[Rfam]
Record summary: Shown here is an 85-nucleotide sequence from Cynara cardunculus, a member of the family "mir-399 microRNA precursor family". It scores 60 bits against the family's covariance model. The organism belongs to Cynara cardunculus subsp. cardunculus, within Eukaryota. A reference for the family is Jones-Rhoades and Bartel (2004), "Computational Identification of Plant MicroRNAs and Their Targets, Including a Stress-Induced miRNA", Mol Cell.
RNA sequence: CGAUGCAUUACCGGGUAGAUACUUCUUUGGCAGUUAGAAAUUAGUAACUCUAACCGCCAAGGAAGAAUUGCCCUGCAAUUCAUCA
Numbered sequence: 001c002g003a004u005g006c007a008u009u010a011c012c013g014g015g016u017a018g019a020u021a022c023u024u025c026u027u028u029g030g031c032a033g034u035u036a037g038a039a040a041u042u043a044g045u046a047a048c049u050c051u052a053a054c055c056g057c058c059a060a061g062g063a064a065g066a067a068u069u070g071c072c073c074u075g076c077a078a079u080u081c082a083u084c085a
Base pairs, nucleotide, nucleotide: 005081007079008078009077011075013073014072015071016070017069018068022065023064024063025062028059029058030057031056033054034053035052036051037050038049